[Rfam]
RNA sequence: UGGUCCUGCCCUUAGGGGCGUUUCCUCCCUAACUGGCCGCGCCGAAAGGCGCGGCUUUUUGUUUGUCCGAG
Number, nucleotide and partner (000 for none) at each position: 001u000002g000003g000004u000005c000006c000007u000008g019009c018010c017011c016012u000013u000014a000015g000016g011017g010018g009019c008020g000021u000022u000023u000024c000025c000026u000027c000028c000029c000030u000031a000032a000033c000034u000035g056036g055037c054038c053039g052040c051041g050042c049043c048044g000045a000046a000047a000048g043049g042050c041051g040052c039053g038054g037055c036056u035057u000058u000059u000060u000061g000062u000063u000064u000065g000066u000067c000068c000069g000070a000071g000

Shown here is a 71-nucleotide RNA from Phenylobacterium zucineum, a member of the family "Makes More Granules Regulator RNA (mmgR)". The pairing is the family consensus, mapped onto this sequence. It is annotated as a small RNA. Rfam describes the family as follows. SuhB later renamed mmgR (makes more granules regulator) was a putative non-coding RNA found multiple times in the Agrobacterium tumefaciens genome and related alpha-proteobacteria. The source organism's lineage runs through Bacteria, Pseudomonadati, Caulobacterales, Phenylobacterium and Phenylobacterium zucineum.